Notes:
The record is a 173-nucleotide sequence from Fructilactobacillus sanfranciscensis, which matches "Lysine riboswitch aptamer" in Rfam. A search with the family's covariance model found it, with a score of 115 bits. Riboswitches are metabolite binding domains within certain messenger RNAs that serve as precision sensors for their corresponding targets. Allosteric rearrangement of mRNA structure is mediated by ligand binding, and this results in modulation of gene expression. This family includes riboswitches that sense lysine in a number of genes involved in lysine metabolism, including lysC. Rfam links the family to the GO term lysine biosynthetic process.
Nucleotides: 173
Base pairs, nucleotide, nucleotide: 008166009165010164011163016082017081018080019079020078022076023075024074032067033066034065035064036063037062038061086112087111088110089109090108091107092106093105094104097102113139114138116136117135118134119133120132121131122130123129141158142157143156144155145154146153147152
Number, partner (000 for none) and nucleotide at each position: 001000u002000a003000u004000c005000u006000a007000a008166g009165a010164a011163g012000a013000g014000g015000a016082g017081c018080g019079a020078c021000u022076a023075u024074u025000a026000u027000c028000a029000g030000u031000a032067g033066u034065u035064c036063u037062g038061u039000g040000a041000a042000g043000a044000c045000u046000a047000a048000c049000c050000a051000g052000g053000u054000c055000a056000g057000u058000g059000a060000a061038a062037c063036a064035g065034a066033a067032c068000g069000a070000a071000a072000g073000g074024a075023a076022u077000c078020g079019u080018c081017g082016c083000c084000g085000a086112a087111a088110u089109u090108a091107a092106a093105u094104g095000a096000g097102u098000g099000g100000u101000a102097a103000c104094c105093a106092u107091u108090u109089g110088a111087u112086u113139g114138g115000g116136g117135c118134u119133u120132g121131a122130u123129u124000u125000a126000a127000u128000a129123a130122a131121u132120c133119a134118a135117g136116c137000a138114c139113u140000g141158u142157c143156g144155c145154a146153u147152u148000g149000a150000g151000a152147a153146a154145u155144g156143c157142g158141g159000a160000g161000c162000g163011c164010u165009u166008u167000g168000c169000a170000g171000a172000c173000u